[Rfam]
Shown here is a 155-nucleotide RNA sequence from Streptomyces sp. Ru87, a member of the family "c-di-AMP riboswitch aptamer (ydaO/yuaA leader)". Taxonomically the source falls in Streptomyces (Bacteria, Actinomycetes, Kitasatosporales, Streptomycetaceae).
RNA sequence: GGGCAGUCAUCGCCCAAUCCCUCCGGCGCGAGCCGAGGGGAGCCGGGGACCCACGUCCUUGGGGUGAAUCGGACGCCUCCGCCAGGUGGUGUCCGUAGGAGACCUUCCUGCUCCGAACCCGUCAGCUAACCCGGUAGGCGAGAAGGAGGGAAAGG
Number, nucleotide and partner (000 for none) at each position: 001g000002g000003g000004c000005a000006g000007u000008c000009a000010u000011c140012g139013c138014c137015c000016a000017a000018u041019c040020c039021c038022u037023c000024c000025g000026g000027c000028g000029c000030g000031a000032g000033c000034c000035g000036a000037g022038g021039g020040g019041a018042g135043c134044c133045g132046g131047g130048g000049a000050c000051c000052c061053a060054c000055g000056u000057c000058c000059u000060u053061g052062g120063g119064g118065u000066g000067a000068a000069u000070c095071g094072g093073a092074c091075g090076c089077c088078u000079c000080c000081g000082c000083c000084a000085g000086g000087u000088g077089g076090u075091g074092u073093c072094c071095g070096u000097a000098g114099g113100a112101g111102a000103c000104c000105u000106u000107c000108c000109u000110g000111c101112u100113c099114c098115g000116a000117a000118c064119c063120c062121g000122u000123c000124a000125g000126c000127u000128a000129a000130c047131c046132c045133g044134g043135u042136a000137g014138g013139c012140g011141a000142g000143a000144a000145g000146g000147a000148g000149g000150g000151a000152a000153a000154g000155g000
Description:
This family represents a conserved RNA structure found upstream of the ydaO and yuaA genes in Bacillus subtilis and related genes in other bacteria.